[Rfam]
RNA sequence: GGUUCGAUGCCACGUCGACGGUAGCUUCGGCUCUGACCGACGAUGCUACGAUUGAACCGAUACAAAUGCCGUGUUUCGUAGCUGAUAGGAAUCUGUGGGUUUCAAAUUUUUUAGUUAAUCCACGGAGCCGUUUUCUGCGAUUACAAUU
Numbered sequence: 001g002g003u004u005c006g007a008u009g010c011c012a013c014g015u016c017g018a019c020g021g022u023a024g025c026u027u028c029g030g031c032u033c034u035g036a037c038c039g040a041c042g043a044u045g046c047u048a049c050g051a052u053u054g055a056a057c058c059g060a061u062a063c064a065a066a067u068g069c070c071g072u073g074u075u076u077c078g079u080a081g082c083u084g085a086u087a088g089g090a091a092u093c094u095g096u097g098g099g100u101u102u103c104a105a106a107u108u109u110u111u112u113a114g115u116u117a118a119u120c121c122a123c124g125g126a127g128c129c130g131u132u133u134u135c136u137g138c139g140a141u142u143a144c145a146a147u148u
Stems, first nucleotide, its partner, number of pairs: 002057007009049001013045005020038003024031002076140005088129002093125003097121005
RNA: Small nucleolar RNA snoR2/U65
Organism: Kalanchoe fedtschenkoi